Rfam assigns this 76-nucleotide sequence to the family "L13-Bacteroidia ribosomal protein leader". Rfam classes the family as a cis-regulatory leader.
RNA sequence: GGGGAAUUACUUAGGUUCCCCGUGGGUGAUGUGUGUUAAUAGUCGUGCGUUUGGCCGCGCCGACGGUUAGUGAAUC
Numbered sequence: 001g002g003g004g005a006a007u008u009a010c011u012u013a014g015g016u017u018c019c020c021c022g023u024g025g026g027u028g029a030u031g032u033g034u035g036u037u038a039a040u041a042g043u044c045g046u047g048c049g050u051u052u053g054g055c056c057g058c059g060c061c062g063a064c065g066g067u068u069a070g071u072g073a074a075u076c
Stems, first nucleotide, its partner, number of pairs: 001021008036070005042064004047060004